[Rfam]
RNA: Plastid-rpoB 5UTR RNA
RNA sequence: CUAUACUGCUCCUGAUUAUUCUGUCUUUAUCUCAUUCAUAAAGAGCAGA
Numbered sequence: 001c002u003a004u005a006c007u008g009c010u011c012c013u014g015a016u017u018a019u020u021c022u023g024u025c026u027u028u029a030u031c032u033c034a035u036u037c038a039u040a041a042a043g044a045g046c047a048g049a
Stems, first nucleotide, its partner, number of pairs: 006048006